[Rfam]
RNA: Small nucleolar RNA SNORA5
Organism: Crotophaga sulcirostris
RNA sequence: UGCAGCUGCGUCAAAUUCAGCCCUGGGCCAGCCCGUGCUGGGGACUGGCCAAACAGCUGCCACAGCAACAUCUGUAGCUCCUGACCCCCAUGGGCCACCUCCCCUGGGCUCUGGGGAUAAAAAAAUGCUACAGACAGCG
Number, nucleotide and partner (000 for none) at each position: 001u000002g060003c059004a058005g057006c000007u000008g000009c000010g000011u000012c000013a000014a000015a000016u000017u000018c047019a046020g045021c000022c043023c042024u041025g000026g039027g038028c037029c000030a000031g000032c000033c000034c000035g000036u000037g028038c027039u026040g000041g024042g023043g022044a000045c020046u019047g018048g000049c000050c000051a000052a000053a000054c000055a000056g000057c005058u004059g003060c002061c000062a000063c000064a000065g000066c000067a000068a000069c000070a000071u000072c000073u000074g131075u130076a129077g128078c127079u125080c000081c000082u000083g000084a000085c000086c116087c115088c114089c000090a000091u000092g112093g111094g000095c000096c000097a000098c000099c000100u000101c000102c000103c000104c000105u000106g000107g000108g000109c000110u000111c093112u092113g000114g088115g087116g086117a000118u000119a000120a000121a000122a000123a000124a000125a079126u000127g078128c077129u076130a075131c074132a000133g000134a000135c000136a000137g000138c000139g000